[Rfam]
The record is a 78-nucleotide RNA from Synechococcus sp. PCC 7336, which matches "CyVA-1 RNA" in Rfam. Rfam's curators write: Cyanobacteria, Acidobacteria (1 example), Verrucomicrobia (1 example).
RNA sequence: GGUUCAUAGUGGGAUUUUUUGCUGUUUGGCCCGCGAAUUGCUCCCGAAGGAGAACGAUGCCAGGGAAGCAAGUGAGAC
Numbered sequence: 001g002g003u004u005c006a007u008a009g010u011g012g013g014a015u016u017u018u019u020u021g022c023u024g025u026u027u028g029g030c031c032c033g034c035g036a037a038u039u040g041c042u043c044c045c046g047a048a049g050g051a052g053a054a055c056g057a058u059g060c061c062a063g064g065g066a067a068g069c070a071a072g073u074g075a076g077a078c
Stems, first nucleotide, its partner, number of pairs: 001078001003076004012032002039070003042066004